The family of this 65-nucleotide RNA from Photobacterium lipolyticum is "Fluoride riboswitch aptamer (crcB RNA motif)".
RNA sequence: CUGGUGACGGGUGAUGGAGUUCCACCUUUAACUGCUCUUGUCGAGAUGAUGACUCCUGCUGUAGU
Numbered sequence: 001c002u003g004g005u006g007a008c009g010g011g012u013g014a015u016g017g018a019g020u021u022c023c024a025c026c027u028u029u030a031a032c033u034g035c036u037c038u039u040g041u042c043g044a045g046a047u048g049a050u051g052a053c054u055c056c057u058g059c060u061g062u063a064g065u
Base pairs, nucleotide, nucleotide: 010026011025012024013023016056017055018054019053020052021051035045036044037043

NCBI's taxonomy places the organism under Bacteria, Pseudomonadota, Gammaproteobacteria, Vibrionaceae, Photobacterium. It scores 53 bits against the family's covariance model.